[Rfam]
RNA sequence: AUGGAGUUCUCUUGGCAGGAAUCCAUGCAUGGGUCUUGAAAAGCAUGGAAUUUGGAGUAAGGAGCUUCAACCCUUCCUCCAAAUUCAUCAGUUUUCUAUGCUUAGCCAAUUCACUCUGUUAAUCUGUUUUUAAGUGACGUUUACAUAUUAAAACGUCGCUAAAUUUAGCGGAGCUAGCUUUUGGCUAAAUCAUAGCAGACCGGCAAGUCACAGUUCGGCAAUGGGGACUCAGAUAUGAGUCUU
Numbered sequence: 001a002u003g004g005a006g007u008u009c010u011c012u013u014g015g016c017a018g019g020a021a022u023c024c025a026u027g028c029a030u031g032g033g034u035c036u037u038g039a040a041a042a043g044c045a046u047g048g049a050a051u052u053u054g055g056a057g058u059a060a061g062g063a064g065c066u067u068c069a070a071c072c073c074u075u076c077c078u079c080c081a082a083a084u085u086c087a088u089c090a091g092u093u094u095u096c097u098a099u100g101c102u103u104a105g106c107c108a109a110u111u112c113a114c115u116c117u118g119u120u121a122a123u124c125u126g127u128u129u130u131u132a133a134g135u136g137a138c139g140u141u142u143a144c145a146u147a148u149u150a151a152a153a154c155g156u157c158g159c160u161a162a163a164u165u166u167a168g169c170g171g172a173g174c175u176a177g178c179u180u181u182u183g184g185c186u187a188a189a190u191c192a193u194a195g196c197a198g199a200c201c202g203g204c205a206a207g208u209c210a211c212a213g214u215u216c217g218g219c220a221a222u223g224g225g226g227a228c229u230c231a232g233a234u235a236u237g238a239g240u241c242u243u
Base pairs, nucleotide, nucleotide: 054080055079056078091200092199093198094197096195108190110188226241227240228239229238230237
Rfam assigns this 243-nucleotide sequence from Macleaya cordata to the family "Early nodulin 40". On this family, see Gultyaev and Roussis, Nucleic Acids Res 2007: "Identification of conserved secondary structures and expansion segments in enod40 RNAs reveals new enod40 homologues in plants". It is annotated as a non-coding RNA gene. Taxonomically the source falls in Macleaya (Eukaryota, Streptophytina, Tracheophyta, Papaveroideae).